[Rfam]
RNA sequence: GACAAUUGAUAGGGGAGCUAUCUUGCUGAGAAUAGACAUAUGUGUCUUAAACCCUUUGACCUGAUUUGGAUAAUGCCAACGUAGGGAUAACACAUGUUUUUUUAG
Numbered sequence: 001g002a003c004a005a006u007u008g009a010u011a012g013g014g015g016a017g018c019u020a021u022c023u024u025g026c027u028g029a030g031a032a033u034a035g036a037c038a039u040a041u042g043u044g045u046c047u048u049a050a051a052c053c054c055u056u057u058g059a060c061c062u063g064a065u066u067u068g069g070a071u072a073a074u075g076c077c078a079a080c081g082u083a084g085g086g087a088u089a090a091c092a093c094a095u096g097u098u099u100u101u102u103u104a105g
Stems, first nucleotide, its partner, number of pairs: 007092002010089001011055004017026002034047004060085004066079004
The record is a 105-nucleotide sequence from Sharpea azabuensis, which matches "TPP riboswitch aptamer (THI element)" in Rfam. Gene Ontology term of the family: thiamine pyrophosphate binding. It scores 68 bits against the family's covariance model. On this family, see Miranda-Rios et al., Proc Natl Acad Sci U S A 2001: "A conserved RNA structure (thi box) is involved in regulation of thiamin biosynthetic gene expression in bacteria". Vitamin B(1) in its active form thiamin pyrophosphate (TPP) is an essential coenzyme that is synthesised by coupling of pyrimidine and thiazole moieties in bacteria. The previously detected thiamin-regulatory element, thi box was extended, resulting in a new, highly conserved RNA secondary structure, the THI element, which is widely distributed in eubacteria and also occurs in some archaea. Analysis of operon structures identified a large number of new candidate thiamin-regulated genes, mostly transporters, in various prokaryotic organisms. The THI element is a riboswitch that directly binds to TPP to regulate gene expression through a variety of mechanisms in archaea, bacteria and eukaryotes. through a variety of mechanisms in archaea, bacteria and eukaryotes. Tandem TPP riboswitches have been reported where both TPP riboswitches respond independently to TPP. The structure of TPP riboswitch has been reported for Escherichia coli and Arabidopsis thaliana.